A member of the RNA family "FMN riboswitch aptamer (RFN element)" from Aliiroseovarius crassostreae, 128 nucleotides long.
RNA sequence: GCCCGUUCUCAGGGCGGGGUGCAAUUCCCCACCGGCGGUUAAAGCCCGCGAGCGGCCCGGUUCGGGUGACAGCAGAUCCGGUGAAAUUCCGGGGCCGACGGUGAUAGUCCGGAUGGAAGAGAGCGGGU
Numbered sequence: 001g002c003c004c005g006u007u008c009u010c011a012g013g014g015c016g017g018g019g020u021g022c023a024a025u026u027c028c029c030c031a032c033c034g035g036c037g038g039u040u041a042a043a044g045c046c047c048g049c050g051a052g053c054g055g056c057c058c059g060g061u062u063c064g065g066g067u068g069a070c071a072g073c074a075g076a077u078c079c080g081g082u083g084a085a086a087u088u089c090c091g092g093g094g095c096c097g098a099c100g101g102u103g104a105u106a107g108u109c110c111g112g113a114u115g116g117a118a119g120a121g122a123g124c125g126g127g128u
Stems, first nucleotide, its partner, number of pairs: 003126008017029003031108002033097002035049004044095002052073002077093005099111003
Overview
The RFN element is a highly conserved domain that is found frequently in the 5'-untranslated regions of prokaryotic mRNAs that encode for flavin mononucleotide (FMN) biosynthesis and transport proteins. This element is a metabolite-dependent riboswitch that directly binds FMN in the absence of proteins. In Bacillus subtilis, the riboswitch most likely controls gene expression by causing premature transcription termination within the 5' untranslated region of the ribDEAHT operon and precluding access to the ribosome-binding site of ypaA mRNA.The FMN riboswitch structure, reported in present an FMN-bound six-stem junction, adopts a butterfly-like scaffold, stapled together by opposingly directed but nearly identically folded peripheral domains. It scores 122 bits against the family's covariance model. Pairs were carried over by alignment from the consensus structure, which is taken from published work. The organism belongs to Aliiroseovarius, within Bacteria.